[Rfam]
RNA sequence: GCUGGGCGUGGUGGUGUGUGCAUGUAGUCCCACCUACUUAGGAAGCUGAGGCAGGAGGAUCGCUUGGGCUCAGGAGCUCUGGGCUGUAAUGUGCUCUGCUGAUUGGGUGUCUGCACUAAGUUCGACAUCAAUAUGGUGACUUCCUGGGAGUGGGGGGCCACCAGGUUGCCUAAGGAGGGGUGAACUGGCUCAGGUUGGAAAUGGAGCAGGUCAGAACUCCUGUGCUGAUCAGUAGUGGGAUCGUGCCUUUGAAUAGCCACUGCACUCCAGCUUGGGCAACCAUAGUGAGACUCUGUCUCUU
Numbered sequence: 001g002c003u004g005g006g007c008g009u010g011g012u013g014g015u016g017u018g019u020g021c022a023u024g025u026a027g028u029c030c031c032a033c034c035u036a037c038u039u040a041g042g043a044a045g046c047u048g049a050g051g052c053a054g055g056a057g058g059a060u061c062g063c064u065u066g067g068g069c070u071c072a073g074g075a076g077c078u079c080u081g082g083g084c085u086g087u088a089a090u091g092u093g094c095u096c097u098g099c100u101g102a103u104u105g106g107g108u109g110u111c112u113g114c115a116c117u118a119a120g121u122u123c124g125a126c127a128u129c130a131a132u133a134u135g136g137u138g139a140c141u142u143c144c145u146g147g148g149a150g151u152g153g154g155g156g157g158c159c160a161c162c163a164g165g166u167u168g169c170c171u172a173a174g175g176a177g178g179g180g181u182g183a184a185c186u187g188g189c190u191c192a193g194g195u196u197g198g199a200a201a202u203g204g205a206g207c208a209g210g211u212c213a214g215a216a217c218u219c220c221u222g223u224g225c226u227g228a229u230c231a232g233u234a235g236u237g238g239g240a241u242c243g244u245g246c247c248u249u250u251g252a253a254u255a256g257c258c259a260c261u262g263c264a265c266u267c268c269a270g271c272u273u274g275g276g277c278a279a280c281c282a283u284a285g286u287g288a289g290a291c292u293c294u295g296u297c298u299c300u301u
Stems, first nucleotide, its partner, number of pairs: 001046003004023001006021005028043003048299008060288005068277007079270005085264004090259002093257003097253001099251001105248006111239002114237005120230001122228003126224003129168004134163005140157007169175002176221006186213005195204003

Record summary:
Shown here is a 301-nucleotide RNA from Homo sapiens, a member of the family "Metazoan signal recognition particle RNA". Pairs were carried over by alignment from the consensus structure, which is taken from published work. Rfam classes the family as a non-coding RNA gene. A reference for the family is Batey et al. (2001), "Structural and energetic analysis of RNA recognition by a universally conserved protein from the signal recognition particle", J Mol Biol. A search with the family's covariance model found it, with a score of 222 bits. The signal recognition particle (SRP) is a universally conserved ribonucleoprotein. It is involved in the co-translational targeting of proteins to membranes. The eukaryotic SRP consists of a 300-nucleotide 7S RNA and six proteins: SRPs 72, 68, 54, 19, 14, and 9. Rfam links the family to the GO terms signal recognition particle, endoplasmic reticulum targeting and SRP-dependent cotranslational protein targeting to membrane, signal sequence recognition. Taxonomically the source falls in Homo (Eukaryota, Eumetazoa, Boreoeutheria, Simiiformes).